[Rfam]
RNA sequence: GGACAAGAGAUACACCCGUUCACGGGAGACCGUGAACGGUACGGGCCGAGGCCUCCCCAGCUUCGCCCUGGUCGUGCCCUCGCGCACACAACCGGAGGCCCCGGUCUCCGGGUCUCCUCACGAUCGGA
Number, nucleotide and partner (000 for none) at each position: 001g000002g000003a000004c000005a000006a118007g117008a000009g116010a115011u000012a000013c000014a000015c000016c039017c038018g037019u036020u035021c034022a033023c032024g031025g030026g000027a000028g000029a000030c025031c024032g023033u022034g021035a020036a019037c018038g017039g016040u000041a072042c070043g069044g068045g067046c000047c065048g064049a063050g062051g061052c060053c000054u000055c000056c000057c000058c000059a000060g052061c051062u050063u049064c048065g047066c000067c045068c044069u043070g042071g000072u041073c000074g087075u086076g085077c084078c000079c000080u000081c000082g000083c000084g077085c076086a075087c074088a000089c000090a000091a000092c111093c110094g109095g108096a107097g106098g105099c104100c000101c000102c000103g000104g099105u098106c097107u096108c095109c094110g093111g092112g000113u000114c000115u010116c009117c007118u006119c000120a000121c126122g000123a000124u000125c000126g121127g000128a000
Shown here is a 128-nucleotide RNA from Streptomyces sp. H-KF8, a member of the family "Streptomyces RNA 5676".
Identified by deep sequencing of transcriptome at the end of exponential growth phase.
The family's RNA type in Rfam is small RNA.
A search with the family's covariance model found it, with a score of 103 bits.
The literature on the family includes a 2011 paper in RNA Biol by Vockenhuber et al., "Deep sequencing-based identification of small non-coding RNAs in Streptomyces coelicolor".